[Rfam]
RNA: L4-Archaeoglobi ribosomal protein leades
RNA sequence: CUGACACAGGCGCAUGGGUUGAUAUCGGAAUCGAUAGCCCGGUCCGCCUCGAAGCACCUUCAAGGAAAGUGCGAAAUGGCGAGCGCGUUAAUGUCAG
Numbered sequence: 001c002u003g004a005c006a007c008a009g010g011c012g013c014a015u016g017g018g019u020u021g022a023u024a025u026c027g028g029a030a031u032c033g034a035u036a037g038c039c040c041g042g043u044c045c046g047c048c049u050c051g052a053a054g055c056a057c058c059u060u061c062a063a064g065g066a067a068a069g070u071g072c073g074a075a076a077u078g079g080c081g082a083g084c085g086c087g088u089u090a091a092u093g094u095c096a097g
Stems, first nucleotide, its partner, number of pairs: 001097005008088001010086004015041004023036005045081004049076001054072004059067001
Dot-bracket structure: (((((..(.((((.((((....(((((....))))).))))...(((((....((((.(.......).))))...).)))).)))).)....)))))